[Rfam]
RNA: Bacterial small signal recognition particle RNA
Organism: Bifidobacterium felsineum
Nucleotides: 097
Base pairs, nucleotide, nucleotide: 004091005090006089007088008087009086010085011084012083013082014081015078018076019075020074022072024068025067026066027065028064035060036059037058043052044051045050
Number, partner (000 for none) and nucleotide at each position: 001000a002000c003000a004091a005090a006089g007088c008087c009086u010085c011084c012083a013082c014081g015078c016000g017000g018076c019075g020074c021000u022072a023000u024068g025067u026066c027065a028064c029000c030000c031000a032000a033000c034000u035060c036059c037058c038000c039000c040000a041000g042000g043052g044051c045050a046000g047000g048000a049000a050045u051044g052043c053000a054000g055000c056000a057000a058037g059036g060035g061000u062000a063000a064028g065027u066026g067025g068024c069000c070000u071000c072022u073000u074020g075019c076018g077000g078015g079000u080000g081014c082013g083012u084011g085010g086009g087008g088007g089006u090005u091004u092000u093000c094000u095000a096000u097000u